The family of this 116-nucleotide sequence from Martelella mediterranea is "Alphaproteobacterial ar15".
Taxonomically the source falls in Martelella mediterranea (Bacteria, Pseudomonadati, Pseudomonadota, Hyphomicrobiales).
On this family, see del Val et al., RNA Biol 2012: "A survey of sRNA families in alpha-proteobacteria".
The base pairs follow the family's consensus structure.
The family's RNA type in Rfam is small RNA.
Clan: suhB sRNA clan.
[Rfam]
RNA sequence: AGCUGAUGCAGGUGGUGCCCAACUUCUCCCUGGUGCACCGCAGCAGCUGUUCCCCUCUGGAGGUUUUGAGAGACCUUCUAACUCAAAGGGCCCCGUUUUUACGGUGGCCCUCUUUU
Dot-bracket structure: (((((.(((.....((((................)))).))).)))))..........((((((........))))))........((((((((((....)))).)))))).....